[Rfam]
RNA sequence: UUAUAAUAAGGUGAUGAGGUUCACCUAUUUAAACUGCCAGAAUACUAUUUUUUCUGGAUGAUGACCUCUACUAAUAA
Numbered sequence: 001u002u003a004u005a006a007u008a009a010g011g012u013g014a015u016g017a018g019g020u021u022c023a024c025c026u027a028u029u030u031a032a033a034c035u036g037c038c039a040g041a042a043u044a045c046u047a048u049u050u051u052u053u054c055u056g057g058a059u060g061a062u063g064a065c066c067u068c069u070a071c072u073a074a075u076a077a
Base pairs, nucleotide, nucleotide: 010025011024012023013022016068017067018066019065020064021063037057038056039055040054041053042052

Rfam assigns this 77-nucleotide RNA to the family "Fluoride riboswitch aptamer (crcB RNA motif)". A search with the family's covariance model found it, with a score of 46 bits.